Rfam assigns this 76-nucleotide RNA sequence from Alligator sinensis to the family "Mammalian CPEB3 ribozyme". The literature on the family includes a 2006 paper in Science by Salehi-Ashtiani et al., "A genomewide search for ribozymes reveals an HDV-like sequence in the human CPEB3 gene". A search with the family's covariance model found it, with a score of 48 bits. The family's consensus secondary structure is taken from published work. The organism belongs to Alligator, within Eukaryota.

[Rfam]
RNA sequence: GUUGCAAAUUCAUGGCCACUUCAGAAGUGUGCAUGGCACGGUCCUGUCAAAUUCCAAUGAAUCUGCAAAUUCUGCU
Numbered sequence: 001g002u003u004g005c006a007a008a009u010u011c012a013u014g015g016c017c018a019c020u021u022c023a024g025a026a027g028u029g030u031g032c033a034u035g036g037c038a039c040g041g042u043c044c045u046g047u048c049a050a051a052u053u054c055c056a057a058u059g060a061a062u063c064u065g066c067a068a069a070u071u072c073u074g075c076u
Stems, first nucleotide, its partner, number of pairs: 014043004022074005027039003048065002051062004